Rfam assigns this 123-nucleotide RNA sequence from Orthohepacivirus hominis to the family "Hepatitis C virus J7880 RNA".
RNA sequence: GUUAAGGCCCGGGCCUCAGAGGUAACGGCUAAGCUCCUCUCAGUUGAGGAGGCAUGUGCCCUUACCCCUCCACACUCUGCUCGUUCGAAGUUCGGGUAUGGAGCGAAAGAUGUCCGGAGUCAU
Numbered sequence: 001g002u003u004a005a006g007g008c009c010c011g012g013g014c015c016u017c018a019g020a021g022g023u024a025a026c027g028g029c030u031a032a033g034c035u036c037c038u039c040u041c042a043g044u045u046g047a048g049g050a051g052g053c054a055u056g057u058g059c060c061c062u063u064a065c066c067c068c069u070c071c072a073c074a075c076u077c078u079g080c081u082c083g084u085u086c087g088a089a090g091u092u093c094g095g096g097u098a099u100g101g102a103g104c105g106a107a108a109g110a111u112g113u114c115c116g117g118a119g120u121c122a123u
Stems, first nucleotide, its partner, number of pairs: 006120001009117002012114003016110002022065004028057002035050005068103004074097004079091002
The family's RNA type in Rfam is cis-regulatory element.
A reference for the family is Mauger et al. (2015), "Functionally conserved architecture of hepatitis C virus RNA genomes", Proc Natl Acad Sci U S A.
The base pairs follow the family's consensus structure, which was predicted with RNAfold.